[Rfam]
RNA sequence: AGCACUGAACGGUGCUGGCUGACGUAAGUCCGACGUGCCUCACGGCACGGCCCGAAGUGGCUCGGGAUUAC
Numbered sequence: 001a002g003c004a005c006u007g008a009a010c011g012g013u014g015c016u017g018g019c020u021g022a023c024g025u026a027a028g029u030c031c032g033a034c035g036u037g038c039c040u041c042a043c044g045g046c047a048c049g050g051c052c053c054g055a056a057g058u059g060g061c062u063c064g065g066g067a068u069u070a071c
Base pairs, nucleotide, nucleotide: 001016002015003014004013005012006011024071025070026069027068030066031065035048036047037046038045039044050061051060052059
RNA: S15-Methanomicrobia ribosomal protein leader
Organism: Methanofollis formosanus